[Rfam]
RNA sequence: ACGAUAUUCCGCUGCUGCGGUUGCGGCAAGAGUGUCUG
Numbered sequence: 001a002c003g004a005u006a007u008u009c010c011g012c013u014g015c016u017g018c019g020g021u022u023g024c025g026g027c028a029a030g031a032g033u034g035u036c037u038g
Base pairs, nucleotide, nucleotide: 003036004035005034006033007032008031009030013028014027015026016025017024018023
Ribosomal protein L19 leader: a 38-nucleotide sequence from Loigolactobacillus coryniformis. The source organism's lineage runs through Bacteria, Bacilli, Lactobacillales, Loigolactobacillus and Loigolactobacillus coryniformis subsp. coryniformis. The family's consensus secondary structure was predicted with CMfinder. Rfam classes the family as a cis-regulatory leader. Rfam links the family to the GO term regulation of gene expression. This family is a putative r-protein leader autoregulatory structure found in B. subtilis and other low-GC Gram-positive bacteria. It is located in the 5' untranslated regions of mRNAs encoding ribosomal protein L19 (rplS). A reference for the family is Zengel and Lindahl (1994), "Diverse mechanisms for regulating ribosomal protein synthesis in Escherichia coli", Prog Nucleic Acid Res Mol Biol.